[Rfam]
RNA sequence: CGGGAUACGUCCCGAAAAGGAAUGUGGCGGAAACGCUGAACCUGAGG
Numbered sequence: 001c002g003g004g005a006u007a008c009g010u011c012c013c014g015a016a017a018a019g020g021a022a023u024g025u026g027g028c029g030g031a032a033a034c035g036c037u038g039a040a041c042c043u044g045a046g047g
Stems, first nucleotide, its partner, number of pairs: 001014005018043003026037004
Overview
This 47-nucleotide sequence from Methanoculleus sp. MH98A belongs to the Rfam family "eL15-Euryarchaeota ribosomal protein leader". The organism belongs to Methanoculleus, within Archaea.